[Rfam]
RNA sequence: UCGUGCUAGAUGGGGAGUUAGCGGUGUCUUGUAACCUGCAAUCCGCUAUAGCAGGGUUGAAGUCCUUGUUGAGGCUUUAAUCUGUGAGGUCUGCCUUAUAUAAGUGGUGUUGAGAGCUUGGUCCCACGCAACGAAAAUUCAUGAACCCCGUCAGAUCUGGAAGGAAGCAGCGGUAAGUGAACCCUUUCGUGUGCCGUGGAAAAACCUGGUUUGAGCUAACUGUAUAAGUAACGCUCAUGGAUUAUAGUCGAGACAAGGUGCACGA
Numbered sequence: 001u002c003g004u005g006c007u008a009g010a011u012g013g014g015g016a017g018u019u020a021g022c023g024g025u026g027u028c029u030u031g032u033a034a035c036c037u038g039c040a041a042u043c044c045g046c047u048a049u050a051g052c053a054g055g056g057u058u059g060a061a062g063u064c065c066u067u068g069u070u071g072a073g074g075c076u077u078u079a080a081u082c083u084g085u086g087a088g089g090u091c092u093g094c095c096u097u098a099u100a101u102a103a104g105u106g107g108u109g110u111u112g113a114g115a116g117c118u119u120g121g122u123c124c125c126a127c128g129c130a131a132c133g134a135a136a137a138u139u140c141a142u143g144a145a146c147c148c149c150g151u152c153a154g155a156u157c158u159g160g161a162a163g164g165a166a167g168c169a170g171c172g173g174u175a176a177g178u179g180a181a182c183c184c185u186u187u188c189g190u191g192u193g194c195c196g197u198g199g200a201a202a203a204a205c206c207u208g209g210u211u212u213g214a215g216c217u218a219a220c221u222g223u224a225u226a227a228g229u230a231a232c233g234c235u236c237a238u239g240g241a242u243u244a245u246a247g248u249c250g251a252g253a254c255a256a257g258g259u260g261c262a263c264g265a
Stems, first nucleotide, its partner, number of pairs: 001265006009058003012030004017025003035055005064258007073249004079243010092230002096227006104220002106217003114212005120206003124199005129191002132189005138181005148173004156165003

Rfam assigns this 265-nucleotide RNA sequence from Clostridium pasteurianum to the family "Bacterial large signal recognition particle RNA".
The family is grouped with related families in Rfam's "SRP clan".
Taxonomically the source falls in Clostridium pasteurianum (Bacteria, Bacillota, Clostridia, Clostridium).
Pairs were carried over by alignment from the consensus structure, which is taken from published work.